[Rfam]
RNA sequence: AAGGCGUAACCCGAAAAGCCAAUAGCCAAUAGAGUAGGGA
Numbered sequence: 001a002a003g004g005c006g007u008a009a010c011c012c013g014a015a016a017a018g019c020c021a022a023u024a025g026c027c028a029a030u031a032g033a034g035u036a037g038g039g040a
Base pairs, nucleotide, nucleotide: 003020004019005018010039011038012037
Dot-bracket structure: ..(((....[[[.....)))................]]].
Shown here is a 40-nucleotide RNA, a member of the family "DUF805b RNA".